The record is a 169-nucleotide sequence from Prodigiosinella confusarubida, which matches "SraG RNA" in Rfam. Gene Ontology terms of the family: mRNA binding and sRNA-mediated gene silencing. Taxonomically the source falls in Prodigiosinella (Bacteria, Pseudomonadati, Pseudomonadota, Enterobacterales). The family's consensus secondary structure was predicted with PFOLD. This RNA was discovered in E. coli during a large scale screen.
[Rfam]
RNA sequence: CAGUCACUACAUCCUCGCGACUAAUGACAACCUUCAGUCUGCCUUUGCAGAUAAAGCCUCUCAUUAGCCGCGCGAAUCGCUGUAAUAACGGAUCCUGUUUAAAACACAAUACAUUACUCUGUUUUACUAGACCUUCCUAGAAGAAAGGGGCCGCAAGAGGCCCCUUCCC
Numbered sequence: 001c002a003g004u005c006a007c008u009a010c011a012u013c014c015u016c017g018c019g020a021c022u023a024a025u026g027a028c029a030a031c032c033u034u035c036a037g038u039c040u041g042c043c044u045u046u047g048c049a050g051a052u053a054a055a056g057c058c059u060c061u062c063a064u065u066a067g068c069c070g071c072g073c074g075a076a077u078c079g080c081u082g083u084a085a086u087a088a089c090g091g092a093u094c095c096u097g098u099u100u101a102a103a104a105c106a107c108a109a110u111a112c113a114u115u116a117c118u119c120u121g122u123u124u125u126a127c128u129a130g131a132c133c134u135u136c137c138u139a140g141a142a143g144a145a146a147g148g149g150g151c152c153g154c155a156a157g158a159g160g161c162c163c164c165u166u167c168c169c
Stems, first nucleotide, its partner, number of pairs: 001091001003089002006086001009083003016074004021067007097122002147164006